[Rfam]
RNA sequence: GUUUCAAUCCUCUACGAGGCUUAUCGGCUUUGCAACG
Numbered sequence: 001g002u003u004u005c006a007a008u009c010c011u012c013u014a015c016g017a018g019g020c021u022u023a024u025c026g027g028c029u030u031u032g033c034a035a036c037g
Stems, first nucleotide, its partner, number of pairs: 001036003005032003010027002